Background:
Rfam assigns this 131-nucleotide RNA from Bifidobacterium simiarum to the family "TPP riboswitch aptamer (THI element)". Taxonomically the source falls in Bifidobacterium (Bacteria, Bacillati, Actinomycetota, Bifidobacteriales). The match comes from Rfam's covariance-model search (57 bits). Rfam describes the family as follows. Vitamin B(1) in its active form thiamin pyrophosphate (TPP) is an essential coenzyme that is synthesised by coupling of pyrimidine and thiazole moieties in bacteria.
[Rfam]
RNA sequence: UGUCAGUUACGGGGGAACCCGCGCAGGCCGGACCGGAAAGGGCCGCGGCCCGUGGGUUGAGAGAGGCGAAACCGCCUGACCCUUAGAACCUGUUGGUUAACACCAGCGUAGGGAGGAACGAAAGAUGAGUG
Numbered sequence: 001u002g003u004c005a006g007u008u009a010c011g012g013g014g015g016a017a018c019c020c021g022c023g024c025a026g027g028c029c030g031g032a033c034c035g036g037a038a039a040g041g042g043c044c045g046c047g048g049c050c051c052g053u054g055g056g057u058u059g060a061g062a063g064a065g066g067c068g069a070a071a072c073c074g075c076c077u078g079a080c081c082c083u084u085a086g087a088a089c090c091u092g093u094u095g096g097u098u099a100a101c102a103c104c105a106g107c108g109u110a111g112g113g114a115g116g117a118a119c120g121a122a123a124g125a126u127g128a129g130u131g
Stems, first nucleotide, its partner, number of pairs: 006119003010115001011083004017057007064077005089112004093106004